Shown here is a 141-nucleotide sequence from Toxostoma redivivum, a member of the family "Small nucleolar RNA SNORA75". Pairs were carried over by alignment from the consensus structure, which was predicted with PFOLD. The family's RNA type in Rfam is H/ACA-box small nucleolar RNA. U23 belongs to the H/ACA class of snoRNAs. snoRNAs bind a number of proteins (including dyskerin, Gar1p and Nop10p in the case of the H/ACA class) to form snoRNP complexes. This class are thought to guide the sites of modification of uridines to pseudouridines by forming direct base pairing interactions with substrate RNAs. Targets include ribosomal and spliceosomal RNAs as well as the Trypanosoma spliced leader RNA (SL RNA) as possibly other, still unknown cellular RNAs. U23 can direct the pseudouridylation of U97 in human 18S rRNA (Bachellerie JP, Ganot, P unpublished data). The organism belongs to Toxostoma, within Eukaryota.
RNA sequence: CUCUUCUCAAUGAGCUCCUUCCUGCCAAUAAAUCUCUGUGGCAGCUGAUGGAUUCGCACGAGAAGAAGAUAAACUGUUCAGUACUGGCAAACUCACAAUGGGGCUCCAUCGAUUGUGAAUAGCCACUGCUGUCCUACAAGU
Number, nucleotide and partner (000 for none) at each position: 001c000002u000003c065004u064005u063006c062007u061008c060009a000010a000011u000012g000013a000014g057015c056016u052017c051018c050019u000020u000021c000022c044023u043024g042025c041026c040027a000028a000029u000030a000031a000032a000033u000034c000035u000036c000037u000038g000039u000040g026041g025042c024043a023044g022045c000046u000047g000048a000049u000050g018051g017052a016053u000054u000055c000056g015057c014058a000059c000060g008061a007062g006063a005064a004065g003066a000067a000068g000069a000070u000071a000072a000073a000074c000075u000076g134077u000078u000079c131080a130081g129082u000083a000084c000085u000086g000087g000088c000089a000090a000091a000092c000093u000094c000095a000096c115097a114098a113099u112100g000101g110102g000103g000104c000105u000106c000107c000108a000109u000110c101111g000112a099113u098114u097115g096116u000117g000118a000119a000120u000121a000122g000123c000124c000125a000126c000127u000128g000129c081130u080131g079132u000133c000134c076135u000136a000137c000138a000139a000140g000141u000